[Rfam]
RNA sequence: GGGUGAGGUAGAGGCGCGGUAUCUAUCAGUAACUAUAUGGAGGCCGGAAACCAUUGAAGUAUAGUGAAAGGAGCUGCCGCCGAAGUCUCAAGUAUCCAAAACUUGAGGCUGGGCCUGCAUCGAAUAGGUGUAGGACUGUCAUCAGGGUAAUUGCCCGUUAUUCUGAUGGAGCGCUAUCUCACAC
Number, nucleotide and partner (000 for none) at each position: 001g000002g000003g000004u000005g000006a179007g178008g177009u176010a175011g174012a000013g000014g000015c000016g080017c079018g078019g077020u076021a075022u000023c073024u072025a000026u000027c000028a000029g000030u000031a000032a065033c064034u063035a062036u061037a060038u059039g000040g000041a000042g000043g000044c000045c000046g000047g000048a000049a000050a000051c000052c000053a000054u000055u000056g000057a000058a000059g038060u037061a036062u035063a034064g033065u032066g000067a000068a000069a000070g000071g000072a024073g023074c000075u021076g020077c019078c018079g017080c016081c000082g000083a000084a110085g109086u108087c107088u106089c105090a104091a103092g102093u101094a000095u099096c000097c000098a000099a095100a000101a093102c092103u091104u090105g089106a088107g087108g086109c085110u084111g137112g136113g000114c134115c133116u132117g131118c130119a129120u128121c127122g000123a000124a000125u000126a000127g121128g120129u119130g118131u117132a116133g115134g114135a000136c112137u111138g000139u169140c168141a167142u166143c165144a164145g163146g162147g161148u160149a159150a000151u000152u000153g000154c000155c000156c000157g000158u000159u149160a148161u147162u146163c145164u144165g143166a142167u141168g140169g139170a000171g000172c000173g000174c011175u010176a009177u008178c007179u006180c000181a000182c000183a000184c000